[Rfam]
RNA sequence: CUGGUCCAUUUCCCUGCCAUUCCCUUGGCUUCAAUUUACUCCCAGGGCUGGCAGUGACAUGGGUCAA
Numbered sequence: 001c002u003g004g005u006c007c008a009u010u011u012c013c014c015u016g017c018c019a020u021u022c023c024c025u026u027g028g029c030u031u032c033a034a035u036u037u038a039c040u041c042c043c044a045g046g047g048c049u050g051g052c053a054g055u056g057a058c059a060u061g062g063g064u065c066a067a
Stems, first nucleotide, its partner, number of pairs: 002066008011057002014054006023047006